[Rfam]
A member of the RNA family "Plastid psbT antisense RNA" from Cuscuta campestris, 38 nucleotides long. Rfam describes the family as follows. Plastid-psbT-asRNA is an antisense RNA (asRNA) motif reported in Plastids It has been shown that psbT expression is controlled by two antisense RNAs originated from psbN transcription by the nuclear-encoded polymerase (NEP), in which the short antisense RNA hybridizes to psbT CDS, thereby stabilizing psbT transcript while blocking its translation during photooxidative stress. The family's consensus secondary structure was predicted with LocARNA. For this family Rfam cites "Retrograde signaling in plants: A critical review focusing on the GUN pathway and beyond" (Richter et al., Plant Commun, 2023). A search with the family's covariance model found it, with a score of 54 bits.
RNA sequence: GUAGUUGGAUCUCCCAAUUUUUGGAAUGCUCCAAACUC
Numbered sequence: 001g002u003a004g005u006u007g008g009a010u011c012u013c014c015c016a017a018u019u020u021u022u023g024g025a026a027u028g029c030u031c032c033a034a035a036c037u038c
Stems, first nucleotide, its partner, number of pairs: 003018001005016001007014002020035006